[Rfam]
Y RNA: a 97-nucleotide RNA from Microcebus murinus.
Nucleotides: 097
Base pairs, nucleotide, nucleotide: 001093002092003091004090005089006088007087008086010085011084015080016076017075018074019073020072021071030058
Number, partner (000 for none) and nucleotide at each position: 001093g002092g003091c004090u005089g006088g007087u008086c009000c010085a011084a012000u013000g014000g015080u016076a017075g018074u019073g020072g021071g022000u023000u024000c025000u026000c027000a028000g029000a030058a031000c032000u033000u034000a035000u036000u037000u038000a039000a040000c041000a042000u043000u044000a045000g046000u047000g048000u049000u050000a051000c052000u053000a054000a055000a056000g057000u058030u059000g060000g061000u062000a063000u064000a065000c066000a067000a068000c069000c070000c071021c072020c073019c074018a075017c076016u077000g078000c079000u080015a081000a082000a083000u084011u085010u086008g087007a088006c089005u090004a091003g092002c093001u094000u095000a096000a097000a
The family's RNA type in Rfam is non-coding RNA gene. NCBI's taxonomy places the organism under Eukaryota, Eumetazoa, Chordata, Teleostomi, Microcebus.